[Rfam]
RNA sequence: GACAGAUGAAGAACGGCUAAGAAGAUCGCCGUUUCCUGUGGCAACGCCGUUCUGACCCACAUCGUGAA
Dot-bracket structure: ..........(((((((..........(((((.....)))))...))))))).......(.....)..